[Rfam]
RNA: Mammalian CPEB3 ribozyme
RNA sequence: AAAGCCGAUCUGGGGUCAAUGUAGAAGCGUGCUCGUCGAGACCCCUGCCAGCCCUUUUCAGGGCUGCAAUUCUACA
Numbered sequence: 001a002a003a004g005c006c007g008a009u010c011u012g013g014g015g016u017c018a019a020u021g022u023a024g025a026a027g028c029g030u031g032c033u034c035g036u037c038g039a040g041a042c043c044c045c046u047g048c049c050a051g052c053c054c055u056u057u058u059c060a061g062g063g064c065u066g067c068a069a070u071u072c073u074a075c076a
Stems, first nucleotide, its partner, number of pairs: 012045006020076007028038002049066007